Xanthine riboswitch aptamer (NMT1 RNA): a 57-nucleotide sequence from Marinobacter sp. R17. It scores 47 bits against the family's covariance model. The literature on the family includes a 2020 paper in RNA by Yu and Breaker, "A bacterial riboswitch class senses xanthine and uric acid to regulate genes associated with purine oxidation". Pairs were carried over by alignment from the consensus structure, which is taken from published work.

RNA sequence: UGACUGAGUAGAAGCAGUCAGAUUCUCCCAACGGAGGAUCGGGGCAUUGCUCAUCGC
Numbered sequence: 001u002g003a004c005u006g007a008g009u010a011g012a013a014g015c016a017g018u019c020a021g022a023u024u025c026u027c028c029c030a031a032c033g034g035a036g037g038a039u040c041g042g043g044g045c046a047u048u049g050c051u052c053a054u055c056g057c
Base pairs, nucleotide, nucleotide: 005053006052007051008050009049010048015042018044019043021040022039023038024037025036026035027034